[Rfam]
About this RNA
The record is an 87-nucleotide RNA from Paenibacillus catalpae, which matches "c-di-GMP-I riboswitch aptamer" in Rfam. Its family is annotated with cyclic-di-GMP binding in the Gene Ontology. The family's consensus secondary structure is taken from published work.

RNA sequence: AACUGAAAAAGGCAAACUUGUCGAAAGGCAAGGACGCAAAGUUAUGGGCCUAAUGUUGGAGAAAACGAUGGCUGCCAGACCGCCGGA
Numbered sequence: 001a002a003c004u005g006a007a008a009a010a011g012g013c014a015a016a017c018u019u020g021u022c023g024a025a026a027g028g029c030a031a032g033g034a035c036g037c038a039a040a041g042u043u044a045u046g047g048g049c050c051u052a053a054u055g056u057u058g059g060a061g062a063a064a065a066c067g068a069u070g071g072c073u074g075c076c077a078g079a080c081c082g083c084c085g086g087a
Base pairs, nucleotide, nucleotide: 012037013036017032018031019030020029021028022027041080042079043078045077046076047075048072049071050070055066056065057064